[Rfam]
This 119-nucleotide RNA from Brachypodium distachyon belongs to the Rfam family "MIR5070 microRNA precursor family". It scores 106 bits against the family's covariance model. The source organism's lineage runs through Eukaryota, Tracheophyta, Pooideae, Stipodae and Brachypodium. The family has 2 seed sequences and 266 matches in Rfam 15.1.
RNA sequence: UAGGGUAACUUUUGACCCUCCAUAGUUCAACCAAAUGAACUAAUUAAAGUUUUAAAUGAAACAACUUUUUGAAAAACUAGUUCAUUUGUUUGAACUAAGGAGGGUCAAUGGAUACCCUG
Numbered sequence: 001u002a003g004g005g006u007a008a009c010u011u012u013u014g015a016c017c018c019u020c021c022a023u024a025g026u027u028c029a030a031c032c033a034a035a036u037g038a039a040c041u042a043a044u045u046a047a048a049g050u051u052u053u054a055a056a057u058g059a060a061a062c063a064a065c066u067u068u069u070u071g072a073a074a075a076a077c078u079a080g081u082u083c084a085u086u087u088g089u090u091u092g093a094a095c096u097a098a099g100g101a102g103g104g105u106c107a108a109u110g111g112a113u114a115c116c117c118u119g
Stems, first nucleotide, its partner, number of pairs: 002118006009111002012108010023097008032088011